Overview
The family of this 83-nucleotide RNA from Phascolarctos cinereus is "Small nucleolar RNA U2-19". The literature on the family includes a 2004 paper in Curr Biol by Tycowski et al., "Guide RNAs with 5' Caps and Novel Box C/D snoRNA-like Domains for Modification of snRNAs in Metazoa". Lineage of the source: Eukaryota > Teleostomi > Sarcopterygii > Mammalia > Phascolarctos.
[Rfam]
RNA sequence: AAUCAGUGAUGAAAAAUAGCCAAAUAUGAGCAAAAAGAGACCUUCUGGUCUAUGCAAUGCAUAAUCUGCAUGUGUUUCUAAGA
Numbered sequence: 001a002a003u004c005a006g007u008g009a010u011g012a013a014a015a016a017u018a019g020c021c022a023a024a025u026a027u028g029a030g031c032a033a034a035a036a037g038a039g040a041c042c043u044u045c046u047g048g049u050c051u052a053u054g055c056a057a058u059g060c061a062u063a064a065u066c067u068g069c070a071u072g073u074g075u076u077u078c079u080a081a082g083a
Base pairs, nucleotide, nucleotide: 030060031059032058038051039050040049041048